Shown here is a 131-nucleotide RNA sequence from Colius striatus, a member of the family "Small nucleolar RNA SNORA5". Rfam links the family to the GO terms nucleolus and RNA processing. Taxonomically the source falls in Colius (Eukaryota, Deuterostomia, Amniota, Neoaves). The family is grouped with related families in Rfam's "SNORA5 clan". From the family's description: ACA5 is a member of the H/ACA class of snoRNA that guide the sites of modification of uridines to pseudouridines.
[Rfam]
RNA sequence: UGCAGCUGCGUCAAAUUCGCUCCUCGGCUGCCCGUGCUGGGGACCGGCCAAACAGCUGCCACAGCAACCACUGCAGCUCCUGAGCCCCACGUUCCCUUCACCCUGGGGCUAAGGAGAUGCUGCAGACAGAA
Dot-bracket structure: .((((............((.((((((((.......)))))))).)).........)))).............((((((......(((((..............)))))........).)))))........